[Rfam]
RNA sequence: ACAUCCAAGAGUGACAUGGACACUGUUGAUCACGGUGUCCAAAACUGUUAAAUUGAGACACAGGUUAUGCUUCCAUCACAGCCAAUGAAUUGCAGUGGUGACAAUGAGUCCUGUAACAAUU
Numbered sequence: 001a002c003a004u005c006c007a008a009g010a011g012u013g014a015c016a017u018g019g020a021c022a023c024u025g026u027u028g029a030u031c032a033c034g035g036u037g038u039c040c041a042a043a044a045c046u047g048u049u050a051a052a053u054u055g056a057g058a059c060a061c062a063g064g065u066u067a068u069g070c071u072u073c074c075a076u077c078a079c080a081g082c083c084a085a086u087g088a089a090u091u092g093c094a095g096u097g098g099u100g101a102c103a104a105u106g107a108g109u110c111c112u113g114u115a116a117c118a119a120u121u
Stems, first nucleotide, its partner, number of pairs: 002047002017041007060114005074100006